[Rfam]
RNA: Small nucleolar RNA SNORA41
RNA sequence: CUCCACAGCUACUGGUCUGUAACUGUUGAGAACUGUAGCAGUUGCAGUAUUCCCUCUGUGGAAGAUAAAAUGUUGCAUCGUGAUAAGCUCCUCUUCAGAUUCUCUGAACAGGACUUCCUGUGUAACAGACAGCG
Dot-bracket structure: ..((((..........(((((((((.............)))))))))..........)))).............((((..........((((.(((.........))).))))......))))...........
Numbered sequence: 001c002u003c004c005a006c007a008g009c010u011a012c013u014g015g016u017c018u019g020u021a022a023c024u025g026u027u028g029a030g031a032a033c034u035g036u037a038g039c040a041g042u043u044g045c046a047g048u049a050u051u052c053c054c055u056c057u058g059u060g061g062a063a064g065a066u067a068a069a070a071u072g073u074u075g076c077a078u079c080g081u082g083a084u085a086a087g088c089u090c091c092u093c094u095u096c097a098g099a100u101u102c103u104c105u106g107a108a109c110a111g112g113a114c115u116u117c118c119u120g121u122g123u124a125a126c127a128g129a130c131a132g133c134g
Stems, first nucleotide, its partner, number of pairs: 003061004017047009075123004089113004094108003